[Rfam]
RNA sequence: GGCUGGUCUGAUGGUAGUAGGUUAUCAGAAUUUAUUAACAUUAGUUUCACCAAAGUUGGUAUAAAACCCCCAACUGCUAAAUUUGUCUGGCUAGA
Numbered sequence: 001g002g003c004u005g006g007u008c009u010g011a012u013g014g015u016a017g018u019a020g021g022u023u024a025u026c027a028g029a030a031u032u033u034a035u036u037a038a039c040a041u042u043a044g045u046u047u048c049a050c051c052a053a054a055g056u057u058g059g060u061a062u063a064a065a066a067c068c069c070c071c072a073a074c075u076g077c078u079a080a081a082u083u084u085g086u087c088u089g090g091c092u093a094g095a
Base pairs, nucleotide, nucleotide: 001092002091003090004089005088006087008085010084011083015079016075017074018073020071021070033061034060035059037057038056
Dot-bracket structure: ((((((.(.((...((((.((...........(((.((.................)).)))........)).)))...)...))).))))))...
Source information:
A member of the RNA family "Y RNA" from Gorilla gorilla, 95 nucleotides long. Rfam's curators write: Y RNAs are components of the Ro ribonucleoprotein particle (Ro RNP), in association with Ro60 and La proteins. The Y RNAs and Ro60 and La proteins are well conserved, but the function of the Ro RNP is not known. In humans the RNA component can be one of four small RNAs -- hY1, hY3, hY4 and hY5. These small RNAs are predicted to fold into a conserved secondary structure containing three stem structures. The largest of the four, hY1, contains an additional hairpin. This family includes a significant number of annotated pseudogenes and the model is expected to discriminate poorly between real and Y RNA related pseudogenes. By type it is a non-coding RNA gene.